[Rfam]
RNA: TPP riboswitch aptamer (THI element)
Organism: Neobacillus rhizophilus
RNA sequence: UGUAACUACUAGGGGUGCCCUGUAAGCGGGCUGAGAGAAAACGGCUAGUUUUUAACCCUUCGGACCUGAUCUGGAUAAUACCAGCGUAGGAAAGUAGACCAUGUUUAAU
Number, nucleotide and partner (000 for none) at each position: 001u000002g000003u000004a000005a000006c097007u096008a095009c094010u093011a059012g058013g057014g056015g000016u000017g031018c030019c029020c028021u000022g000023u000024a000025a000026g000027c000028g020029g019030g018031c017032u000033g000034a000035g000036a000037g000038a052039a051040a050041a049042c048043g000044g000045c000046u000047a000048g042049u041050u040051u039052u038053u000054a000055a000056c014057c013058c012059u011060u000061c000062g000063g000064a000065c090066c089067u088068g087069a000070u000071c084072u083073g082074g081075a000076u000077a000078a000079u000080a000081c074082c073083a072084g071085c000086g000087u068088a067089g066090g065091a000092a000093a010094g009095u008096a007097g006098a000099c000100c000101a000102u000103g000104u000105u000106u000107a000108a000109u000